[Rfam]
RNA sequence: CUGUGACUUGUGGGCUUCCCUUUGUCAUCCUUUGCCUAGGGUUAUGAGUAGGGCAGGGACAGCAAAGGGGUGCCCACACAUCACUGUC
Numbered sequence: 001c002u003g004u005g006a007c008u009u010g011u012g013g014g015c016u017u018c019c020c021u022u023u024g025u026c027a028u029c030c031u032u033u034g035c036c037u038a039g040g041g042u043u044a045u046g047a048g049u050a051g052g053g054c055a056g057g058g059a060c061a062g063c064a065a066a067g068g069g070g071u072g073c074c075c076a077c078a079c080a081u082c083a084c085u086g087u088c
Base pairs, nucleotide, nucleotide: 017070018069019068020067021066022065024063025062028059029058030057031056032055034054035053036052037051
RNA: mir-204 microRNA precursor family